[Rfam]
RNA: Bacterial antisense RNA HPnc0260
RNA sequence: AUUAUUUUAUGCUUGGCGCUUUUAAUUUGCAGCUAAUUUUUUAGCUUUAAAUUUUUUUCUUUAAAUUAAAACAAUAUGGAUAAUUAAGGAUAGGUAGUGGUGGCCUCGAUUGGACUUGAACCAACGACCACCACCA
Dot-bracket structure: ..............((.....((.......)).....))..........................................................((((((...((.((((.......)))))).))))))...
Numbered sequence: 001a002u003u004a005u006u007u008u009a010u011g012c013u014u015g016g017c018g019c020u021u022u023u024a025a026u027u028u029g030c031a032g033c034u035a036a037u038u039u040u041u042u043a044g045c046u047u048u049a050a051a052u053u054u055u056u057u058u059c060u061u062u063a064a065a066u067u068a069a070a071a072c073a074a075u076a077u078g079g080a081u082a083a084u085u086a087a088g089g090a091u092a093g094g095u096a097g098u099g100g101u102g103g104c105c106u107c108g109a110u111u112g113g114a115c116u117u118g119a120a121c122c123a124a125c126g127a128c129c130a131c132c133a134c135c136a
Stems, first nucleotide, its partner, number of pairs: 015039002022032002098133006107126002110124004